A member of the RNA family "U11 spliceosomal RNA" from Furnarius figulus, 128 nucleotides long. The source organism's lineage runs through Eukaryota, Craniata, Euteleostomi, Neognathae and Furnarius.
[Rfam]
RNA sequence: AAAAAGGGCUUCUGCCGUGCGUGGCACGGGGGGGCCUCGCGCCGCCCCCGCGGAAUCGACAUCAAGAGAUUUCGGAAGCACAAUUUUUGUGAGAGGGGCAGCCGGUAACCGCCAGUUCCGGUACCCCG
Numbered sequence: 001a002a003a004a005a006g007g008g009c010u011u012c013u014g015c016c017g018u019g020c021g022u023g024g025c026a027c028g029g030g031g032g033g034g035c036c037u038c039g040c041g042c043c044g045c046c047c048c049c050g051c052g053g054a055a056u057c058g059a060c061a062u063c064a065a066g067a068g069a070u071u072u073c074g075g076a077a078g079c080a081c082a083a084u085u086u087u088u089g090u091g092a093g094a095g096g097g098g099c100a101g102c103c104g105g106u107a108a109c110c111g112c113c114a115g116u117u118c119c120g121g122u123a124c125c126c127c128g
Stems, first nucleotide, its partner, number of pairs: 008079005013026005027050006034042002051074007096126003101122005107117003
Pairs were carried over by alignment from the consensus structure, which is taken from published work. Rfam 15.1 lists 2,595 matches to the family in 1,202 species.